[Rfam]
The family of this 87-nucleotide RNA from Zestomonas carbonaria is "t44 RNA". Taxonomically the source falls in Zestomonas (Bacteria, Pseudomonadota, Gammaproteobacteria, Pseudomonadales). A reference for the family is Tjaden et al. (2002), "Transcriptome analysis of Escherichia coli using high-density oligonucleotide probe arrays", Nucleic Acids Res. About the family: This family consists of a number of bacterial RNA genes of between 135 and 170 bases in length. The t44 gene has been identified in several species of enteric bacteria but homologs have also been identified in Pseudomonas and Coxiella species. The t44 gene is found between the map and rpsB genes in all species in the full alignment apart from Shigella flexneri. The function of this RNA is unknown. The base pairs follow the family's consensus structure, which was predicted with LocARNA. It is annotated as a small RNA.
RNA sequence: GUCCGCGAAGCAUUAACCCACACACGUAUCGACACGAUUUCCUGGGUGCCUGAAAGGGUUGGAAAUUGGGAUGCGUGGAGGCCUAAC
Numbered sequence: 001g002u003c004c005g006c007g008a009a010g011c012a013u014u015a016a017c018c019c020a021c022a023c024a025c026g027u028a029u030c031g032a033c034a035c036g037a038u039u040u041c042c043u044g045g046g047u048g049c050c051u052g053a054a055a056g057g058g059u060u061g062g063a064a065a066u067u068g069g070g071a072u073g074c075g076u077g078g079a080g081g082c083c084u085a086a087c
Base pairs, nucleotide, nucleotide: 023077024076025075026074027073028072029071030070035068036067037066038065039064040063041062042061048059049058050057051056